[Rfam]
RNA: mir-9209 microRNA precursor family
Organism: Cnephaeus nilssonii
RNA sequence: AGACCAGUGGUCGGCAAAUCGAGGCUCGUGAGCCACAUGCGGCUCGCGAGCCUCGGUUUGCCGCUCUGUUGA
Numbered sequence: 001a002g003a004c005c006a007g008u009g010g011u012c013g014g015c016a017a018a019u020c021g022a023g024g025c026u027c028g029u030g031a032g033c034c035a036c037a038u039g040c041g042g043c044u045c046g047c048g049a050g051c052c053u054c055g056g057u058u059u060g061c062c063g064c065u066c067u068g069u070u071g072a
Stems, first nucleotide, its partner, number of pairs: 003070001005068003009065002012063018031044004